RNA sequence: AGCUUUUACAAGGUAUCAGCACGUUUCUUUCAUUUGGGGGAAGGAGUGAGGAAAGUACCAAACAGCAGCAGACUUUUAAACUUUAAAUAGUUCUGAGUGCCUGAACUUGCUUUUUUAUUUUACUUCAUCCCCUAAGGAGUUUAAUCACUUGGCAUGUCUACUUCACUUCUUUUAAGAGAAAGAAUAAGUGUUUUUAAAAG
Numbered sequence: 001a002g003c004u005u006u007u008a009c010a011a012g013g014u015a016u017c018a019g020c021a022c023g024u025u026u027c028u029u030u031c032a033u034u035u036g037g038g039g040g041a042a043g044g045a046g047u048g049a050g051g052a053a054a055g056u057a058c059c060a061a062a063c064a065g066c067a068g069c070a071g072a073c074u075u076u077u078a079a080a081c082u083u084u085a086a087a088u089a090g091u092u093c094u095g096a097g098u099g100c101c102u103g104a105a106c107u108u109g110c111u112u113u114u115u116u117a118u119u120u121u122a123c124u125u126c127a128u129c130c131c132c133u134a135a136g137g138a139g140u141u142u143a144a145u146c147a148c149u150u151g152g153c154a155u156g157u158c159u160a161c162u163u164c165a166c167u168u169c170u171u172u173u174a175a176g177a178g179a180a181a182g183a184a185u186a187a188g189u190g191u192u193u194u195u196a197a198a199a200g
Stems, first nucleotide, its partner, number of pairs: 002020003007015003029139003033135002036132004040126004048119002051116001053115003070094003074090002095110001097108001099106001149196001151193002154191004161182003164178001166176003